[Rfam]
RNA sequence: GAAUAGCACUGUUUUGCUAUCCCCGACCAAUAAUGCAAUGACACGUAAAAAAGUUAUCCUACGUGUCAUUGCAUUAUUGGCUGAGGAUAGCAAAAAGUGUUAUCC
Numbered sequence: 001g002a003a004u005a006g007c008a009c010u011g012u013u014u015u016g017c018u019a020u021c022c023c024c025g026a027c028c029a030a031u032a033a034u035g036c037a038a039u040g041a042c043a044c045g046u047a048a049a050a051a052a053g054u055u056a057u058c059c060u061a062c063g064u065g066u067c068a069u070u071g072c073a074u075u076a077u078u079g080g081c082u083g084a085g086g087a088u089a090g091c092a093a094a095a096a097g098u099g100u101u102a103u104c105c
Base pairs, nucleotide, nucleotide: 003103004102005101012095013094014093015092016091017090018089019088020087022085024083025082027080028079029078030077031076032075033074034073035072036071037070038069039068040067041066042065043064044063045062046061047060050057
RNA: MIR6274 microRNA precursor family
Organism: Prunus persica